A member of the RNA family "Glycine riboswitch aptamer" from Nitrosospira sp. Nsp1, 109 nucleotides long. This family represents the bacterial glycine riboswitch. Glycine riboswitches usually consist of two metabolite-binding aptamers domains with similar structures in tandem. The aptamers cooperatively bind glycine to regulate the expression of downstream genes. In Bacillus subtilis, this riboswitch is found upstream of the gcvT operon which controls glycine degradation. The source organism's lineage runs through Bacteria, Pseudomonadati, Nitrosomonadales, Nitrosomonadaceae and Nitrosospira.
RNA sequence: AGAAGGCAAUCUGGAGAGCGCCGGCAUUGAGUUGGCCACCGAAGGGGCAGACGGAGUAGAGAAACAAAUAUUCCGUAAUCUCUCAGGUAAAAAGGACAGAGGGGUGAAG
Numbered sequence: 001a002g003a004a005g006g007c008a009a010u011c012u013g014g015a016g017a018g019c020g021c022c023g024g025c026a027u028u029g030a031g032u033u034g035g036c037c038a039c040c041g042a043a044g045g046g047g048c049a050g051a052c053g054g055a056g057u058a059g060a061g062a063a064a065c066a067a068a069u070a071u072u073c074c075g076u077a078a079u080c081u082c083u084c085a086g087g088u089a090a091a092a093a094g095g096a097c098a099g100a101g102g103g104g105u106g107a108a109g
Stems, first nucleotide, its partner, number of pairs: 007103001010100004020036004038088003041084002045082003051076008